[Rfam]
RNA sequence: AAAGCUUGACAGACAAUCGCUGGUGAGAAAUCACGAGAGGAAAGUCCGGGCUCCAUAGGGCAAUGAUGCUGGAUAACGUCCAGUCAGCGCGAGCUGAAGGCUAGUGCCACAGAAAUGGACCGCCGAUGGCGCAGGAUUCGUCCUGCGCACAGGUAAGGGUGGAACCGUGGUGUAAGAGACCACGAGGAGAUAUGGUGACAUAUGUCCUGGUAAACCCCAUCUGGAGCAAGACCUAGUGGAACGCAAGUCUUCUUGAGAGACAGUCCCUGCCCGGGACGCGUUCGGGUUGGUCGCUUGAGCCAAGCAGCAAUGUUUGGCCUAGAUAGAUGAUUGUCGCUUCAACGGUGGGAGGGUGGUACCCGAUAUGACCACUGGAAGUACAGAACCCGGCUUACGGCACGCUUUCCUG
Numbered sequence: 001a002a003a004g005c006u007u008g009a010c011a012g013a014c015a016a017u018c019g020c021u022g023g024u025g026a027g028a029a030a031u032c033a034c035g036a037g038a039g040g041a042a043a044g045u046c047c048g049g050g051c052u053c054c055a056u057a058g059g060g061c062a063a064u065g066a067u068g069c070u071g072g073a074u075a076a077c078g079u080c081c082a083g084u085c086a087g088c089g090c091g092a093g094c095u096g097a098a099g100g101c102u103a104g105u106g107c108c109a110c111a112g113a114a115a116u117g118g119a120c121c122g123c124c125g126a127u128g129g130c131g132c133a134g135g136a137u138u139c140g141u142c143c144u145g146c147g148c149a150c151a152g153g154u155a156a157g158g159g160u161g162g163a164a165c166c167g168u169g170g171u172g173u174a175a176g177a178g179a180c181c182a183c184g185a186g187g188a189g190a191u192a193u194g195g196u197g198a199c200a201u202a203u204g205u206c207c208u209g210g211u212a213a214a215c216c217c218c219a220u221c222u223g224g225a226g227c228a229a230g231a232c233c234u235a236g237u238g239g240a241a242c243g244c245a246a247g248u249c250u251u252c253u254u255g256a257g258a259g260a261c262a263g264u265c266c267c268u269g270c271c272c273g274g275g276a277c278g279c280g281u282u283c284g285g286g287u288u289g290g291u292c293g294c295u296u297g298a299g300c301c302a303a304g305c306a307g308c309a310a311u312g313u314u315u316g317g318c319c320u321a322g323a324u325a326g327a328u329g330a331u332u333g334u335c336g337c338u339u340c341a342a343c344g345g346u347g348g349g350a351g352g353g354u355g356g357u358a359c360c361c362g363a364u365a366u367g368a369c370c371a372c373u374g375g376a377a378g379u380a381c382a383g384a385a386c387c388c389g390g391c392u393u394a395c396g397g398c399a400c401g402c403u404u405u406c407c408u409g
Stems, first nucleotide, its partner, number of pairs: 001405005007399002010396001012335007020037002023034004042393003046390005051226004059272002065221004069083005084098001085096004099217002104215002106211003120158002122154003127151002129148008166184006186207003190203005230292004239283006263277005299318008